[Rfam]
RNA sequence: GAGCUUAGAGGUUGAAAAGUAGCCGUCUCCAACGCGCCACCGAAAUGGUGGGUCCAGAAAUGCGGGCGACCAAAGGCGGUCCCGCCUAAGCUU
Numbered sequence: 001g002a003g004c005u006u007a008g009a010g011g012u013u014g015a016a017a018a019g020u021a022g023c024c025g026u027c028u029c030c031a032a033c034g035c036g037c038c039a040c041c042g043a044a045a046u047g048g049u050g051g052g053u054c055c056a057g058a059a060a061u062g063c064g065g066g067c068g069a070c071c072a073a074a075g076g077c078g079g080u081c082c083c084g085c086c087u088a089a090g091c092u093u
Base pairs, nucleotide, nucleotide: 001093002092003091004090005089006088007087008086011033012032013031014030023079024078025077026076027075035057037051038050039049040048062085063084064083065082066081

About this RNA
The family of this 93-nucleotide sequence is "skipping-rope RNA". It is annotated as a small RNA.